Shown here is a 133-nucleotide RNA from Sapayoa aenigma, a member of the family "Small nucleolar RNA SNORA84".
By type it is an H/ACA-box small nucleolar RNA.
Rfam 15.1 lists 757 matches to the family in 629 species.
For this family Rfam cites "Experimental RNomics: identification of 140 candidates for small non-messenger RNAs in the plant Arabidopsis thaliana" (Marker et al., Curr Biol, 2002).
[Rfam]
Nucleotides: 133
Base pairs, nucleotide, nucleotide: 001058003056004055007049010046012044013043014042015041016040018036019035020034021033022032069125071123072122073121074120075119080115081114082112083111084110085109087107089105090104091103092102
Number, partner (000 for none) and nucleotide at each position: 001058g002000c003056c004055c005000u006000g007049u008000g009000g010046u011000u012044g013043c014042u015041g016040c017000c018036g019035c020034u021033g022032c023000c024000g025000u026000g027000c028000c029000c030000g031000u032022g033021c034020a035019g036018c037000g038000c039000c040016g041015c042014g043013g044012u045000u046010g047000c048000a049007g050000c051000g052000a053000a054000g055004g056003g057000c058001c059000g060000a061000c062000a063000g064000u065000g066000a067000c068000a069125c070000u071123g072122u073121g074120g075119g076000u077000g078000a079000c080115g081114c082112g083111u084110g085109g086000a087107g088000c089105c090104u091103g092102u093000g094000a095000u096000c097000c098000c099000u100000g101000a102092g103091c104090a105089g106000c107087u108000c109085c110084c111083a112082c113000a114081g115080c116000c117000c118000c119075c120074c121073c122072g123071c124000a125069g126000u127000c128000a129000c130000a131000c132000c133000c